Rfam assigns this 105-nucleotide RNA from Carboxydocella thermautotrophica to the family "PyrR binding site". Pairs were carried over by alignment from the consensus structure, which is taken from published work. The match comes from Rfam's covariance-model search (57 bits). By type it is a cis-regulatory element. Rfam describes the family as follows. This family represents the PyrR binding site and terminator structure. This RNA structure is found upstream of a variety of genes involved in pyrimidine biosynthesis and transport. The alignment also includes a portion of the antiterminator structure.

[Rfam]
Nucleotides: 105
Base pairs, nucleotide, nucleotide: 003038004037005036006035007034008033014031015030016029017028018027019026045068046067047066048065049064050063051062071098072097073096074095075094076093077092079090080089081088
Number, partner (000 for none) and nucleotide at each position: 001000u002000a003038g004037c005036c006035c007034u008033u009000u010000a011000a012000a013000a014031c015030u016029g017028g018027u019026c020000c021000u022000g023000u024000g025000a026019g027018g028017c029016c030015g031014g032000c033008a034007a035006g036005g037004g038003u039000g040000g041000a042000u043000a044000u045068a046067c047066u048065a049064a050063c051062c052000g053000u054000u055000a056000a057000u058000g059000u060000c061000g062051g063050g064049u065048u066047a067046g068045u069000c070000u071098g072097c073096c074095u075094u076093c077092c078000u079090g080089c081088c082000c083000u084000u085000u086000c087000a088081g089080g090079c091000c092077g093076g094075a095074a096073g097072g098071c099000u100000u101000u102000u103000a104000u105000u